[Rfam]
RNA sequence: ACUGCUAAGCCAUCUCUCCAGCCCUUUAGACACCUUUUAAAAAUAAAAAAUACGGGGCUGCAGAGAUGGCUUAGUGGU
Numbered sequence: 001a002c003u004g005c006u007a008a009g010c011c012a013u014c015u016c017u018c019c020a021g022c023c024c025u026u027u028a029g030a031c032a033c034c035u036u037u038u039a040a041a042a043a044u045a046a047a048a049a050a051u052a053c054g055g056g057g058c059u060g061c062a063g064a065g066a067u068g069g070c071u072u073a074g075u076g077g078u
Base pairs, nucleotide, nucleotide: 002077003076004075005074006073007072008071009070010069011068012067013066014065015064016063017062019060020059021058022057023056024055
This 78-nucleotide RNA sequence from Jaculus jaculus belongs to the Rfam family "mir-3473 microRNA precursor family". The source organism's lineage runs through Eukaryota, Chordata, Myomorpha, Dipodidae and Jaculus.